The family of this 100-nucleotide RNA from Marinicauda pacifica is "TPP riboswitch aptamer (THI element)". A search with the family's covariance model found it, with a score of 65 bits. Taxonomically the source falls in Marinicauda (Bacteria, Pseudomonadota, Alphaproteobacteria, Maricaulales).
RNA sequence: GCGACUUCCAGGGGGUGUCCCGGUGCGAACCGGGGCUGAGACCUUACCCUUUGAACCGGAUCCAGAUCAUGCUGGCGUCGGGAUGGAAAUGUGACAGGCC
Dot-bracket structure: .....(((((((((..(((((((......)))))))..........)))).....((((..((((......))))..))))..)))))............